[Rfam]
RNA sequence: UGUGCACCCAAACCCAAAGGUCCCAUCUUGUCUGUGAGGGGACUUUGUCUGGUGUGCAGACAAAAACCAGAUCCUUGUCGCCUUUCUCUGCUGCUGCAGUGCCUUUGAAAGUGAAUUCAAGGAUCGACACUG
Numbered sequence: 001u002g003u004g005c006a007c008c009c010a011a012a013c014c015c016a017a018a019g020g021u022c023c024c025a026u027c028u029u030g031u032c033u034g035u036g037a038g039g040g041g042a043c044u045u046u047g048u049c050u051g052g053u054g055u056g057c058a059g060a061c062a063a064a065a066a067c068c069a070g071a072u073c074c075u076u077g078u079c080g081c082c083u084u085u086c087u088c089u090g091c092u093g094c095u096g097c098a099g100u101g102c103c104u105u106u107g108a109a110a111g112u113g114a115a116u117u118c119a120a121g122g123a124u125c126g127a128c129a130c131u132g
Stems, first nucleotide, its partner, number of pairs: 003058005009052001019044006026037002070125007082111005090102002
Rfam assigns this 132-nucleotide RNA from Echeneis naucrates to the family "Small nucleolar RNA SNORA68". For this family Rfam cites "The family of box ACA small nucleolar RNAs is defined by an evolutionarily conserved secondary structure and ubiquitous sequence elements essential for RNA accumulation" (Ganot et al., Genes Dev, 1997). Lineage of the source: Eukaryota > Opisthokonta > Teleostei > Echeneidae > Echeneis. The family has 26 seed sequences and 1,079 matches in Rfam 15.1. Rfam links the family to the GO terms nucleolus and RNA processing. It scores 72 bits against the family's covariance model. From the family's description: U68 is a member of the H/ACA class of small nucleolar RNAs (snoRNAs) which act as guides in the the modification of uridines to pseudouridines.